[Rfam]
RNA sequence: AACCAGCAUCAAGAGUCGGAGCACGUCCGGCACCAACCUGCGCCCGCGCAAGGUGGUACCCCUGGAAACAGAGGGAUGUGGCCGAUCCGGCAAUUAGCGGGUUUUUA
Numbered sequence: 001a002a003c004c005a006g007c008a009u010c011a012a013g014a015g016u017c018g019g020a021g022c023a024c025g026u027c028c029g030g031c032a033c034c035a036a037c038c039u040g041c042g043c044c045c046g047c048g049c050a051a052g053g054u055g056g057u058a059c060c061c062c063u064g065g066a067a068a069c070a071g072a073g074g075g076a077u078g079u080g081g082c083c084g085a086u087c088c089g090g091c092a093a094u095u096a097g098c099g100g101g102u103u104u105u106u107a
Stems, first nucleotide, its partner, number of pairs: 006079005015031006032057003037053003040049003081091004
This 107-nucleotide RNA from Sphingomonas sp. S-NIH.Pt15_0812 belongs to the Rfam family "SAM-I/IV (S-adenosyl methionine) riboswitch aptamer". Lineage of the source: Bacteria > Pseudomonadota > Alphaproteobacteria > Sphingomonadaceae > Sphingomonas.